The family of this 117-nucleotide RNA from Tetracentron sinense is "Small nucleolar RNA Z278". Taxonomically the source falls in Tetracentron (Eukaryota, Streptophyta, Magnoliopsida, Trochodendraceae). It scores 69 bits against the family's covariance model. Pairs were carried over by alignment from the consensus structure, which was predicted with PFOLD. About the family: snoZ278 is a C/D box small nucleolar RNA. Its methylation guide targets have not been reported.

[Rfam]
RNA sequence: GCCUUUGAUGAAAUUAUCCAUGUUUUUGAGGUGGGGUUGCUUCAUGUUCCUGUUUACAGGGAGAACCUACUUGGAGCUGCUUCAUUAUCAUAUGAAAUUAUUGGAUUUUUCUGAGGC
Numbered sequence: 001g002c003c004u005u006u007g008a009u010g011a012a013a014u015u016a017u018c019c020a021u022g023u024u025u026u027u028g029a030g031g032u033g034g035g036g037u038u039g040c041u042u043c044a045u046g047u048u049c050c051u052g053u054u055u056a057c058a059g060g061g062a063g064a065a066c067c068u069a070c071u072u073g074g075a076g077c078u079g080c081u082u083c084a085u086u087a088u089c090a091u092a093u094g095a096a097a098u099u100a101u102u103g104g105a106u107u108u109u110u111c112u113g114a115g116g117c
Stems, first nucleotide, its partner, number of pairs: 001117003048061005